[Rfam]
RNA sequence: ACCAUCCUUUUCUUGGGGUUGCGCUACGGUCCAAUGAACGAGAAGUGAGGACAGUACUGCUAAUGGCUAAACAACACACUCGCAUCAGUUAGAGCUCUGCUUUAUCUUGGUGCAAUUUUUGGAAAA
Numbered sequence: 001a002c003c004a005u006c007c008u009u010u011u012c013u014u015g016g017g018g019u020u021g022c023g024c025u026a027c028g029g030u031c032c033a034a035u036g037a038a039c040g041a042g043a044a045g046u047g048a049g050g051a052c053a054g055u056a057c058u059g060c061u062a063a064u065g066g067c068u069a070a071a072c073a074a075c076a077c078a079c080u081c082g083c084a085u086c087a088g089u090u091a092g093a094g095c096u097c098u099g100c101u102u103u104a105u106c107u108u109g110g111u112g113c114a115a116u117u118u119u120u121g122g123a124a125a126a
Base pairs, nucleotide, nucleotide: 006018007017008016009015021060022059023058026055027054029052030051031050032049038046039045082113083112084111085110086109087108090104091103092102093101094100095099
U4atac minor spliceosomal RNA: a 126-nucleotide RNA from Rhinolophus ferrumequinum. On this family, see Davila Lopez et al., Nucleic Acids Res 2008: "Computational screen for spliceosomal RNA genes aids in defining the phylogenetic distribution of major and minor spliceosomal components". The family is grouped with related families in Rfam's "U4 clan". NCBI's taxonomy places the organism under Eukaryota, Tetrapoda, Amniota, Laurasiatheria, Rhinolophus. Rfam links the family to the GO terms U4atac snRNP, spliceosomal tri-snRNP complex assembly and mRNA 5'-splice site recognition. U4atac is an essential component of the minor U12-type spliceosome complex which is required for removal of the rarer class of eukaryotic introns (AT-AC, U12-type). The family's RNA type in Rfam is spliceosomal small nuclear RNA. Pairs were carried over by alignment from the consensus structure, which is taken from published work.